[Rfam]
RNA sequence: GAAUUUAUUAUUUUUAUAUAUAAUGUAUUGUGACAGUAAUCCAACUUGGUACGAGAGGAUUAGUUGGUUCAGACAGUUGGUACAGCAAUUGGUUGACAAACCAGUGUUGCGAAGCUAAGUCUGUUGGAUAAUGGCUGAACGCCUCUUAAGCCAGAACCCAUGCUGAUUAAACAAUACUAUUUCGUUCUUCUUUGUUUCUACUUUUACUGCUGAUGUAAAAGCGAAGCUAUAUGUAUAACAUCUGUUAUACAAUUAAUCCCAUUGCCAUUUGGAGGCUUGCCUCCUUUUGGUUCUUGUAAUUAACAACAAAGUUGAAUUACACAAACUGUAGACGACUUUUUGGCCUCGGGGUGCUGUAAACAUGAAAGUAAACUUUGUUUUACGAUCUGUUGAGGCUUAUCCUCUGUGGUAAAGUGUUC
Numbered sequence: 001g002a003a004u005u006u007a008u009u010a011u012u013u014u015u016a017u018a019u020a021u022a023a024u025g026u027a028u029u030g031u032g033a034c035a036g037u038a039a040u041c042c043a044a045c046u047u048g049g050u051a052c053g054a055g056a057g058g059a060u061u062a063g064u065u066g067g068u069u070c071a072g073a074c075a076g077u078u079g080g081u082a083c084a085g086c087a088a089u090u091g092g093u094u095g096a097c098a099a100a101c102c103a104g105u106g107u108u109g110c111g112a113a114g115c116u117a118a119g120u121c122u123g124u125u126g127g128a129u130a131a132u133g134g135c136u137g138a139a140c141g142c143c144u145c146u147u148a149a150g151c152c153a154g155a156a157c158c159c160a161u162g163c164u165g166a167u168u169a170a171a172c173a174a175u176a177c178u179a180u181u182u183c184g185u186u187c188u189u190c191u192u193u194g195u196u197u198c199u200a201c202u203u204u205u206a207c208u209g210c211u212g213a214u215g216u217a218a219a220a221g222c223g224a225a226g227c228u229a230u231a232u233g234u235a236u237a238a239c240a241u242c243u244g245u246u247a248u249a250c251a252a253u254u255a256a257u258c259c260c261a262u263u264g265c266c267a268u269u270u271g272g273a274g275g276c277u278u279g280c281c282u283c284c285u286u287u288u289g290g291u292u293c294u295u296g297u298a299a300u301u302a303a304c305a306a307c308a309a310a311g312u313u314g315a316a317u318u319a320c321a322c323a324a325a326c327u328g329u330a331g332a333c334g335a336c337u338u339u340u341u342g343g344c345c346u347c348g349g350g351g352u353g354c355u356g357u358a359a360a361c362a363u364g365a366a367a368g369u370a371a372a373c374u375u376u377g378u379u380u381u382a383c384g385a386u387c388u389g390u391u392g393a394g395g396c397u398u399a400u401c402c403u404c405u406g407u408g409g410u411a412a413a414g415u416g417u418u419c
Base pairs, nucleotide, nucleotide: 025177026176027175028174029173030172031171034165035164036163037162039069041067042066043065044064045063046062070123071122072121073120074119078117079116080115085110086109087108088107089104090103091102092101093100094099125160126159127158132153133152134151135150136149186315187314190311191310192309319417320416321415322414324340325339328336344409345408347406348405349403350402351401353396354395360390361389362388365386368383369382370381371380372379

Rfam assigns this 419-nucleotide part of an RNA from Plasmodium yoelii to the family "Eukaryotic large subunit ribosomal RNA". The source organism's lineage runs through Eukaryota, Alveolata, Apicomplexa, Plasmodiidae and Plasmodium yoelii.